The record is a 52-nucleotide RNA sequence from Roseobacter sp. GAI101, which matches "ffh sRNA" in Rfam. The family's consensus secondary structure is taken from published work. Rfam's curators put it in the seed alignment. A reference for the family is Meyer et al. (2009), "Identification of candidate structured RNAs in the marine organism 'Candidatus Pelagibacter ubique'", BMC Genomics.
RNA sequence: GCAGCCAAAGAUCGACCCCCACCAGCGUGUUACGCCCGUGGGGGCAUUUGUG
Numbered sequence: 001g002c003a004g005c006c007a008a009a010g011a012u013c014g015a016c017c018c019c020c021a022c023c024a025g026c027g028u029g030u031u032a033c034g035c036c037c038g039u040g041g042g043g044g045c046a047u048u049u050g051u052g
Stems, first nucleotide, its partner, number of pairs: 016044007025035004